[Rfam]
RNA sequence: GGAAUUAGGAGGGGCGCCACCGACCGCGGUCGGGGGAAGGUCUGAGGUCAUUUUCCGUGAGGGAGGCGCGCCAACGCGUGCAGCAGUCGCACCAGAAACCAAGAGCCUCUGUGCUUAUGCCAGGAGGAGGGCCUUGCCCGACUGAGAGUGCUCGCUGAAAGAGGCUGCGACGCGGGUUAUUCAGUUCGAUGCGCCCAGGCUGACGGUAGGACGCCUAACCCGAUUCAGACUACUCCUUGGUUCC
Numbered sequence: 001g002g003a004a005u006u007a008g009g010a011g012g013g014g015c016g017c018c019a020c021c022g023a024c025c026g027c028g029g030u031c032g033g034g035g036g037a038a039g040g041u042c043u044g045a046g047g048u049c050a051u052u053u054u055c056c057g058u059g060a061g062g063g064a065g066g067c068g069c070g071c072c073a074a075c076g077c078g079u080g081c082a083g084c085a086g087u088c089g090c091a092c093c094a095g096a097a098a099c100c101a102a103g104a105g106c107c108u109c110u111g112u113g114c115u116u117a118u119g120c121c122a123g124g125a126g127g128a129g130g131g132c133c134u135u136g137c138c139c140g141a142c143u144g145a146g147a148g149u150g151c152u153c154g155c156u157g158a159a160a161g162a163g164g165c166u167g168c169g170a171c172g173c174g175g176g177u178u179a180u181u182c183a184g185u186u187c188g189a190u191g192c193g194c195c196c197a198g199g200c201u202g203a204c205g206g207u208a209g210g211a212c213g214c215c216u217a218a219c220c221c222g223a224u225u226c227a228g229a230c231u232a233c234u235c236c237u238u239g240g241u242u243c244c
Stems, first nucleotide, its partner, number of pairs: 001244004007238003013196002018191001020033005042228005052065005066081006083168006103153004198216002201213002204210001
RNA: Nuclear RNase P